The record is a 185-nucleotide sequence from Oryza nivara, which matches "MIR812 microRNA precursor family" in Rfam. Taxonomically the source falls in Oryza (Eukaryota, Streptophytina, Embryophyta, Spermatophyta). A search with the family's covariance model found it, with a score of 82 bits. Its family is annotated with RISC complex and miRNA-mediated post-transcriptional gene silencing in the Gene Ontology. Pairs were carried over by alignment from the consensus structure, which was predicted with RNAalifold.
RNA sequence: CGUUUAUGACGCCGUUGACUUUUUCUCACAUGUUUGACCAUUCGUCUUGUUCAAAAAAUUUUGUUAUGAGUUGUUUUAUCACUCAUAGUACUUUAAGUGUGAUUUAUAUCUUAUACAUUUACAUAAAAUUUUUGAAUAAGACGAAUGGUCAAACAUGUGAGAAAAAGUCAACAGUGUCAUCUAUU
Numbered sequence: 001c002g003u004u005u006a007u008g009a010c011g012c013c014g015u016u017g018a019c020u021u022u023u024u025c026u027c028a029c030a031u032g033u034u035u036g037a038c039c040a041u042u043c044g045u046c047u048u049g050u051u052c053a054a055a056a057a058a059u060u061u062u063g064u065u066a067u068g069a070g071u072u073g074u075u076u077u078a079u080c081a082c083u084c085a086u087a088g089u090a091c092u093u094u095a096a097g098u099g100u101g102a103u104u105u106a107u108a109u110c111u112u113a114u115a116c117a118u119u120u121a122c123a124u125a126a127a128a129u130u131u132u133u134g135a136a137u138a139a140g141a142c143g144a145a146u147g148g149u150c151a152a153a154c155a156u157g158u159g160a161g162a163a164a165a166a167g168u169c170a171a172c173a174g175u176g177u178c179a180u181c182u183a184u185u
Stems, first nucleotide, its partner, number of pairs: 027159024